The record is a 509-nucleotide sequence from Allokutzneria albata, which matches "Saccharopolyspora sRNA 350" in Rfam. Taxonomically the source falls in Allokutzneria (Bacteria, Bacillati, Actinomycetes, Pseudonocardiaceae). The match comes from Rfam's covariance-model search (189 bits). The family's RNA type in Rfam is antisense RNA. On this family, see Liu et al., PLoS One 2013: "Prediction and characterization of small non-coding RNAs related to secondary metabolites in Saccharopolyspora erythraea". Rfam links the family to the GO term regulation of secondary metabolite biosynthetic process. Rfam 15.1 lists 1,170 matches to the family in 705 species.
RNA sequence: UUGACCGUGUAGGCCCACGGGGAGCUGUCCCCGGUGAGCACCUGGUCGCCGAAGUGGUCGCCGUCGAUCAUGGUGCCGACCACGACCGGGUCGCCGUACUUGCCGGGCGCGACCUGGUUCACCUUUCCGUGCGCCAGCAGGAAGAUCUCGCCGGCGGCCUCACCGGCGCGGACCAGGGUGUCUCCCGGGGCGAACUCCUGCUGCCGGAACCGGUCGGCCAGGGCGUUGAGCACCUCGGCGUCGUCGAAGCCGCGCAGCAGCGGCAGCUCGCACAGCUCCGGCGGCACCACGCGGACCUCGGAACCGGUGUUGCUGAAGGACAACCGCCCGUCGCCGACCGCGAAGGUGAGCCUGCGGUUGACCCGGUAGGCGCCGCCCUUCGCCUCCACCCACGGCAGCACCCGCAGCAACCACCGCGGCGUGAUGCCCUGCAUCUGCGGGACCGACUUGGUCGUCGUCGCGAGGUUGCGCGCCGCCGCGGUUCCGAGGCUCAGCUGCUGGGCCUGCGG
Numbered sequence: 001u002u003g004a005c006c007g008u009g010u011a012g013g014c015c016c017a018c019g020g021g022g023a024g025c026u027g028u029c030c031c032c033g034g035u036g037a038g039c040a041c042c043u044g045g046u047c048g049c050c051g052a053a054g055u056g057g058u059c060g061c062c063g064u065c066g067a068u069c070a071u072g073g074u075g076c077c078g079a080c081c082a083c084g085a086c087c088g089g090g091u092c093g094c095c096g097u098a099c100u101u102g103c104c105g106g107g108c109g110c111g112a113c114c115u116g117g118u119u120c121a122c123c124u125u126u127c128c129g130u131g132c133g134c135c136a137g138c139a140g141g142a143a144g145a146u147c148u149c150g151c152c153g154g155c156g157g158c159c160u161c162a163c164c165g166g167c168g169c170g171g172a173c174c175a176g177g178g179u180g181u182c183u184c185c186c187g188g189g190g191c192g193a194a195c196u197c198c199u200g201c202u203g204c205c206g207g208a209a210c211c212g213g214u215c216g217g218c219c220a221g222g223g224c225g226u227u228g229a230g231c232a233c234c235u236c237g238g239c240g241u242c243g244u245c246g247a248a249g250c251c252g253c254g255c256a257g258c259a260g261c262g263g264c265a266g267c268u269c270g271c272a273c274a275g276c277u278c279c280g281g282c283g284g285c286a287c288c289a290c291g292c293g294g295a296c297c298u299c300g301g302a303a304c305c306g307g308u309g310u311u312g313c314u315g316a317a318g319g320a321c322a323a324c325c326g327c328c329c330g331u332c333g334c335c336g337a338c339c340g341c342g343a344a345g346g347u348g349a350g351c352c353u354g355c356g357g358u359u360g361a362c363c364c365g366g367u368a369g370g371c372g373c374c375g376c377c378c379u380u381c382g383c384c385u386c387c388a389c390c391c392a393c394g395g396c397a398g399c400a401c402c403c404g405c406a407g408c409a410a411c412c413a414c415c416g417c418g419g420c421g422u423g424a425u426g427c428c429c430u431g432c433a434u435c436u437g438c439g440g441g442a443c444c445g446a447c448u449u450g451g452u453c454g455u456c457g458u459c460g461c462g463a464g465g466u467u468g469c470g471c472g473c474c475g476c477c478g479c480g481g482u483u484c485c486g487a488g489g490c491u492c493a494g495c496u497g498c499u500g501g502g503c504c505u506g507c508g509g
Stems, first nucleotide, its partner, number of pairs: 007389003011385002014382001019327001021325002025319002028316002037311006045305001049301004054233002058229003062225003065111002075103001077102003082097003086093001118221002122217002126213002129210002132206002135203003139199003143196002149192002155187003160178002165174002235295002240290002243287002245284001249282004254278001256277003260271003329342003354376004362370002391431002394428004399423003403418003407415001437476004443470001446467001447465003451461002477508002480504003484500001486498001487496002